[Rfam]
RNA sequence: AUUAAACUAUUCUAGGGUUCCGUAAUAAGUUAUUUAUUAGACUGGUCCGAGAGAAUAGGCACAUUUAAUUAAUGUGUACACGGAAGGAGAAAAGCCUGGGAGAU
Numbered sequence: 001a002u003u004a005a006a007c008u009a010u011u012c013u014a015g016g017g018u019u020c021c022g023u024a025a026u027a028a029g030u031u032a033u034u035u036a037u038u039a040g041a042c043u044g045g046u047c048c049g050a051g052a053g054a055a056u057a058g059g060c061a062c063a064u065u066u067a068a069u070u071a072a073u074g075u076g077u078a079c080a081c082g083g084a085a086g087g088a089g090a091a092a093a094g095c096c097u098g099g100g101a102g103a104u
Stems, first nucleotide, its partner, number of pairs: 007058006015048002020045002022042001023039006059077007079099001081102001085097003
RNA: Guanidine-I riboswitch aptamer
Organism: Clostridium thermobutyricum